Shown here is a 100-nucleotide RNA sequence from Aquibacillus halophilus, a member of the family "Purine riboswitch aptamer". It scores 80 bits against the family's covariance model. The base pairs follow the family's consensus structure, which is taken from published work. Riboswitches are metabolite binding domains within certain messenger RNAs that serve as precision sensors for their corresponding targets.
[Rfam]
RNA sequence: UUAUUAAUAAUAAACUUACCUCAUAUAAUUUCGGGGAUAUGGCCCGAUAGUCUCUACCCGUCGCCGUAAAUGAUGGACUAUGAUGGAAGAAGAAUCAUUG
Numbered sequence: 001u002u003a004u005u006a007a008u009a010a011u012a013a014a015c016u017u018a019c020c021u022c023a024u025a026u027a028a029u030u031u032c033g034g035g036g037a038u039a040u041g042g043c044c045c046g047a048u049a050g051u052c053u054c055u056a057c058c059c060g061u062c063g064c065c066g067u068a069a070a071u072g073a074u075g076g077a078c079u080a081u082g083a084u085g086g087a088a089g090a091a092g093a094a095u096c097a098u099u100g
Stems, first nucleotide, its partner, number of pairs: 019085001021083005029049001031047005058076006
Dot-bracket structure: ..................(.(((((...(.(((((.......))))).)........((((((.......))))))..))))).)...............